[Rfam]
RNA sequence: UGUUUCGCAAUUCUUGCUUUGUCAAGGGGGAGCGCUUCACCUCAUGUUUGCUUGUAACACCUCUGGUUUCUUCAACACCAGAGGUGUUACAAGCAAACAUGAGGUGAAGCGCUCCCCCUUGACAAAGCAAGAAUUGCGAAACA
Numbered sequence: 001u002g003u004u005u006c007g008c009a010a011u012u013c014u015u016g017c018u019u020u021g022u023c024a025a026g027g028g029g030g031a032g033c034g035c036u037u038c039a040c041c042u043c044a045u046g047u048u049u050g051c052u053u054g055u056a057a058c059a060c061c062u063c064u065g066g067u068u069u070c071u072u073c074a075a076c077a078c079c080a081g082a083g084g085u086g087u088u089a090c091a092a093g094c095a096a097a098c099a100u101g102a103g104g105u106g107a108a109g110c111g112c113u114c115c116c117c118c119u120u121g122a123c124a125a126a127g128c129a130a131g132a133a134u135u136g137c138g139a140a141a142c143a
Stems, first nucleotide, its partner, number of pairs: 002142002005139006012132007020124018040104004045099012058086002061083003065079002
A member of the RNA family "MIR7725 microRNA precursor family" from Microcaecilia unicolor, 143 nucleotides long. Gene Ontology terms of the family: miRNA-mediated post-transcriptional gene silencing and RISC complex. A search with the family's covariance model found it, with a score of 78 bits.